[Rfam]
RNA sequence: UCACAAAUUAGUGAGGGAGCUUUUUUUAAGUUGUAGUCUCAAUCUAGUUAGACAGCACUUUAUUGGUAAUAACUAUAUUAAACAGUAGUUAU
Number, nucleotide and partner (000 for none) at each position: 001u000002c000003a000004c000005a000006a000007a067008u066009u000010a000011g063012u062013g061014a060015g059016g058017g000018a000019g056020c055021u054022u000023u052024u051025u000026u047027u046028a045029a000030g000031u042032u041033g040034u000035a000036g000037u000038c000039u000040c033041a032042a031043u000044c000045u028046a027047g026048u000049u000050a000051g024052a023053c000054a021055g020056c019057a000058c016059u015060u014061u013062a012063u011064u000065g000066g008067u007068a000069a092070u091071a090072a089073c088074u087075a086076u085077a000078u000079u000080a000081a000082a000083c000084a000085g076086u075087a074088g073089u072090u071091a070092u069